RNA sequence: GACCGGUUGAUUCGUCCCGGCUGUGUUCGGGACGCAGGCAUAAAGAAAAGGAACUGAGCAGAAAAGAACGCUGGUCGGGUGGCGAAGC
Numbered sequence: 001g002a003c004c005g006g007u008u009g010a011u012u013c014g015u016c017c018c019g020g021c022u023g024u025g026u027u028c029g030g031g032a033c034g035c036a037g038g039c040a041u042a043a044a045g046a047a048a049a050g051g052a053a054c055u056g057a058g059c060a061g062a063a064a065a066g067a068a069c070g071c072u073g074g075u076c077g078g079g080u081g082g083c084g085a086a087g088c
Base pairs, nucleotide, nucleotide: 003020004019005018006017054078055077056076057075059073060072061071
RNA: RAGATH-28 RNA